[Rfam]
msiK RNA: a 60-nucleotide RNA sequence from Bifidobacterium primatium. It is annotated as a cis-regulatory element. The match comes from Rfam's covariance-model search (61 bits).
RNA sequence: UAUACACCCCCUUUUACAACGGAUCGUGAGGCACGUACCUGCCUCUGAAAGGAACUGAUU
Numbered sequence: 001u002a003u004a005c006a007c008c009c010c011c012u013u014u015u016a017c018a019a020c021g022g023a024u025c026g027u028g029a030g031g032c033a034c035g036u037a038c039c040u041g042c043c044u045c046u047g048a049a050a051g052g053a054a055c056u057g058a059u060u
Stems, first nucleotide, its partner, number of pairs: 010052007028045006